[Rfam]
RNA: Lysine riboswitch aptamer
RNA sequence: AGUAAGGAUAGAGGCGCAAAGACCAAGAGUACACAGUGUGAGGAUAAUGAGGUCCAAUGAUCAUUGUGGAAAGGGGGAUUUGCCGAAGUCCCUGGAAACUCAUUUUUUCAGGGGCUGGUCCUGCAUUGAAUAAGUGCAGGACUGUCAUAUAGGAAACUAUAUGGAGGGCUAUCUUACGC
Numbered sequence: 001a002g003u004a005a006g007g008a009u010a011g012a013g014g015c016g017c018a019a020a021g022a023c024c025a026a027g028a029g030u031a032c033a034c035a036g037u038g039u040g041a042g043g044a045u046a047a048u049g050a051g052g053u054c055c056a057a058u059g060a061u062c063a064u065u066g067u068g069g070a071a072a073g074g075g076g077g078a079u080u081u082g083c084c085g086a087a088g089u090c091c092c093u094g095g096a097a098a099c100u101c102a103u104u105u106u107u108u109c110a111g112g113g114g115c116u117g118g119u120c121c122u123g124c125a126u127u128g129a130a131u132a133a134g135u136g137c138a139g140g141a142c143u144g145u146c147a148u149a150u151a152g153g154a155a156a157c158u159a160u161a162u163g164g165a166g167g168g169c170u171a172u173c174u175u176a177c178g179c
Base pairs, nucleotide, nucleotide: 006174007173008172009171010170011169016083017082018081019080020079023076024075032068033067034066035065036064037063038062087116088115089114090113091112092111093110094109095108096107097106098105117143118142119141120140121139122138123137124136125135126134127133145164146163147162148161149160150159151158
Dot-bracket structure: .....((((((....(((((..((.......(((((((.......................)))))))......))..)))))...((((((((((((......))))))))))))(((((((((((.....))))))))))).(((((((......)))))))....)))))).....